RNA sequence: GAGCAAUGAUGAAAAUAAAACUGUGCUGGAGCGGGUCAUCUUUUGUGCUCGUCGAUGAUGGCGCAAUCCUCUAAGAAGUUCUGAGCUC
Numbered sequence: 001g002a003g004c005a006a007u008g009a010u011g012a013a014a015a016u017a018a019a020a021c022u023g024u025g026c027u028g029g030a031g032c033g034g035g036u037c038a039u040c041u042u043u044u045g046u047g048c049u050c051g052u053c054g055a056u057g058a059u060g061g062c063g064c065a066a067u068c069c070u071c072u073a074a075g076a077a078g079u080u081c082u083g084a085g086c087u088c
Base pairs, nucleotide, nucleotide: 001088002087003086004085
Rfam assigns this 88-nucleotide RNA sequence from Cicer arietinum to the family "Small nucleolar RNA U61". For this family Rfam cites "Plant snoRNA database" (Brown et al., Nucleic Acids Res, 2003). It is annotated as a C/D-box small nucleolar RNA. The source organism's lineage runs through Eukaryota, Streptophyta, Pentapetalae, Hologalegina and Cicer. The family has 8 seed sequences and 401 matches in Rfam 15.1.